A member of the RNA family "icd-II ncRNA motif" from Polynucleobacter asymbioticus, 140 nucleotides long. It is one of the family's seed sequences. It is annotated as a cis-regulatory element. The family's consensus secondary structure is taken from published work. Rfam describes the family as follows. icd-II ncRNA motif was located upstream of icd gene, which codes for NADP+-dependent isocitrate dehydrogenase (IDH) enzyme. icd-II has been proposed as a strong candidate riboswitch. Lineage of the source: Bacteria > Betaproteobacteria > Burkholderiales > Burkholderiaceae > Polynucleobacter.

RNA sequence: UCGAUGAUUUAAAAUAGAAGACUCGCCUCAUUGGCAUGGGGCCUGCUCUAAGGUAGGCCAGCUAAAAGCGACAUUGCAAAAUGUGGAAUGUGAGAGUGGCAGGGUUAAAACCUGACUCUGUAAAUUUAUCAAUAUUGAGG
Numbered sequence: 001u002c003g004a005u006g007a008u009u010u011a012a013a014a015u016a017g018a019a020g021a022c023u024c025g026c027c028u029c030a031u032u033g034g035c036a037u038g039g040g041g042c043c044u045g046c047u048c049u050a051a052g053g054u055a056g057g058c059c060a061g062c063u064a065a066a067a068g069c070g071a072c073a074u075u076g077c078a079a080a081a082u083g084u085g086g087a088a089u090g091u092g093a094g095a096g097u098g099g100c101a102g103g104g105u106u107a108a109a110a111c112c113u114g115a116c117u118c119u120g121u122a123a124a125u126u127u128a129u130c131a132a133u134a135u136u137g138a139g140g
Stems, first nucleotide, its partner, number of pairs: 001138006010128004022094004027086002030084002034077002044073002061069002098117002100114004